[Rfam]
RNA sequence: ACCAUCUUUGUCAUGGGGUGUGAGAGCUGCUCAGUGAACGUCUAGUGAGAGCAUCUCUGCUGACGCCAUGACAACAACACAUGCGCAUCACCUAGGCAGCAAUGCCUGGGCUAUGGUGCAAUUUUUGGAACC
Numbered sequence: 001a002c003c004a005u006c007u008u009u010g011u012c013a014u015g016g017g018g019u020g021u022g023a024g025a026g027c028u029g030c031u032c033a034g035u036g037a038a039c040g041u042c043u044a045g046u047g048a049g050a051g052c053a054u055c056u057c058u059g060c061u062g063a064c065g066c067c068a069u070g071a072c073a074a075c076a077a078c079a080c081a082u083g084c085g086c087a088u089c090a091c092c093u094a095g096g097c098a099g100c101a102a103u104g105c106c107u108g109g110g111c112u113a114u115g116g117u118g119c120a121a122u123u124u125u126u127g128g129a130a131c132c
Stems, first nucleotide, its partner, number of pairs: 006018004020060003026055001028053005038046002085119006091110008
Notes: Shown here is a 132-nucleotide RNA from Clupea harengus, a member of the family "U4atac minor spliceosomal RNA". The family is grouped with related families in Rfam's "U4 clan". For this family Rfam cites "Domains of human U4atac snRNA required for U12-dependent splicing in vivo" (Shukla et al., Nucleic Acids Res, 2002). Its family is annotated with spliceosomal tri-snRNP complex assembly, U4atac snRNP and mRNA 5'-splice site recognition in the Gene Ontology. A search with the family's covariance model found it, with a score of 87 bits. U4atac is an essential component of the minor U12-type spliceosome complex which is required for removal of the rarer class of eukaryotic introns (AT-AC, U12-type). Rfam classes the family as a spliceosomal small nuclear RNA.